[Rfam]
RNA sequence: GUCAAUUCCUGGGGGAGCCCUGUUGGGCUGAGAUUCCGCUUCAUUGCGGUAACCCUUUGAACCUGAUCCGGGUAAUGCCGGCGAAGGGAAGGACAUCGCACGGUUC
Number, nucleotide and partner (000 for none) at each position: 001g000002u000003c000004a000005a000006u000007u093008c092009c091010u090011g056012g055013g054014g053015g000016a050017g028018c027019c026020c025021u000022g000023u000024u000025g020026g019027g018028c017029u000030g000031a000032g000033a000034u000035u000036c049037c048038g047039c046040u000041u000042c000043a000044u000045u000046g039047c038048g037049g036050u016051a000052a000053c014054c013055c012056u011057u000058u000059g000060a000061a000062c087063c086064u085065g000066a000067u000068c081069c080070g079071g078072g000073u000074a000075a000076u000077g000078c071079c070080g069081g068082c000083g000084a000085a064086g063087g062088g000089a000090a010091g009092g008093a007094c000095a000096u000097c000098g000099c000100a000101c000102g000103g000104u000105u000106c000
The family of this 106-nucleotide RNA from Achromobacter kerstersii is "TPP riboswitch aptamer (THI element)". It scores 78 bits against the family's covariance model. Gene Ontology term of the family: thiamine pyrophosphate binding. Rfam's curators write: Vitamin B(1) in its active form thiamin pyrophosphate (TPP) is an essential coenzyme that is synthesised by coupling of pyrimidine and thiazole moieties in bacteria. Pairs were carried over by alignment from the consensus structure, which is taken from published work.